[Rfam]
RNA sequence: AACUGAACAGGGGAGCUUAUAGAUAGGCUGAGAGGAAGUUGAGAACUUCGACCCAUAUACCUGAUUUGGAUAAUGCCAACGUAGGAACCGAUGUAAGAUAUUUA
Numbered sequence: 001a002a003c004u005g006a007a008c009a010g011g012g013g014a015g016c017u018u019a020u021a022g023a024u025a026g027g028c029u030g031a032g033a034g035g036a037a038g039u040u041g042a043g044a045a046c047u048u049c050g051a052c053c054c055a056u057a058u059a060c061c062u063g064a065u066u067u068g069g070a071u072a073a074u075g076c077c078a079a080c081g082u083a084g085g086a087a088c089c090g091a092u093g094u095a096a097g098a099u100a101u102u103u104a
Stems, first nucleotide, its partner, number of pairs: 006092001008090001010054003015028005035049005060085004066079004